[Rfam]
RNA sequence: CGACCCUAGGUCAGACGGGAUUACCCGCUGAGUUUAAGAAUAUCAAUUAGAGAAGAAAAAGAAACUUACAAGGAUUUAUUUAGUAACGGCGAGCGAUUUGGGAAUAGCCUAGCCUUAGAAUCGGGCGGCUCCAUCGUCCAAAUUGUAUUCUAGGGAAGCGUCCCCAACAGUAGACCGGGCCUAAGUCCCAUGGAAGGAGGCGCUAGAGCGGGUGAGAGUCCCGUUGUUCCCGGACCCUGUCGCACCAUGGGGCGCUGUCUACGAGUUGGGUUGUUUGGGAAUGCAGCCCAAAUUGGGCGGUGAAUUUUGUCCAAGGCUAAAUACAGGCGAGAGACUGAUAGCGAACAAGUAGCGCGAGGGAAAGAUGAAAAGGACUUUGAAAAGAGAGUCAAAGGGUGCUUGAAAUUGUCAAGAGGAAAG
Numbered sequence: 001c002g003a004c005c006c007u008a009g010g011u012c013a014g015a016c017g018g019g020a021u022u023a024c025c026c027g028c029u030g031a032g033u034u035u036a037a038g039a040a041u042a043u044c045a046a047u048u049a050g051a052g053a054a055g056a057a058a059a060a061g062a063a064a065c066u067u068a069c070a071a072g073g074a075u076u077u078a079u080u081u082a083g084u085a086a087c088g089g090c091g092a093g094c095g096a097u098u099u100g101g102g103a104a105u106a107g108c109c110u111a112g113c114c115u116u117a118g119a120a121u122c123g124g125g126c127g128g129c130u131c132c133a134u135c136g137u138c139c140a141a142a143u144u145g146u147a148u149u150c151u152a153g154g155g156a157a158g159c160g161u162c163c164c165c166a167a168c169a170g171u172a173g174a175c176c177g178g179g180c181c182u183a184a185g186u187c188c189c190a191u192g193g194a195a196g197g198a199g200g201c202g203c204u205a206g207a208g209c210g211g212g213u214g215a216g217a218g219u220c221c222c223g224u225u226g227u228u229c230c231c232g233g234a235c236c237c238u239g240u241c242g243c244a245c246c247a248u249g250g251g252g253c254g255c256u257g258u259c260u261a262c263g264a265g266u267u268g269g270g271u272u273g274u275u276u277g278g279g280a281a282u283g284c285a286g287c288c289c290a291a292a293u294u295g296g297g298c299g300g301u302g303a304a305u306u307u308u309g310u311c312c313a314a315g316g317c318u319a320a321a322u323a324c325a326g327g328c329g330a331g332a333g334a335c336u337g338a339u340a341g342c343g344a345a346c347a348a349g350u351a352g353c354g355c356g357a358g359g360g361a362a363a364g365a366u367g368a369a370a371a372g373g374a375c376u377u378u379g380a381a382a383a384g385a386g387a388g389u390c391a392a393a394g395g396g397u398g399c400u401u402g403a404a405a406u407u408g409u410c411a412a413g414a415g416g417a418a419a420g
Stems, first nucleotide, its partner, number of pairs: 024055001026052001028050002035042002065072002076103002079100001087093001106318004112150001115147001118144002121141001123139005155259002157256004162252004168242001170240004175233005185201001187200002204208001211221002268289007295312005353358001375386004
Dot-bracket structure: .......................(.(.((.....((....))......)).)..).........((....))...((.(.......(.....)......).))..((((..(..(..((.(.(((((.......))))).).))..)..)....((((((.((((..(.((((.(((((.....(.((..........)))..(...)..((.......)).......)))))...)))).)......)))))))).))........(((((((........))))))).....(((((........)))))..))))..................................(....)................((((....))))..................................

The record is a 420-nucleotide part of an RNA from Solanum lycopersicum, which matches "Eukaryotic large subunit ribosomal RNA" in Rfam. The source organism's lineage runs through Eukaryota, Embryophyta, Magnoliopsida, Solaneae and Solanum subgen. Lycopersicon. Its family is annotated with structural constituent of ribosome and ribosome in the Gene Ontology. The sequence is in the family's curated seed alignment.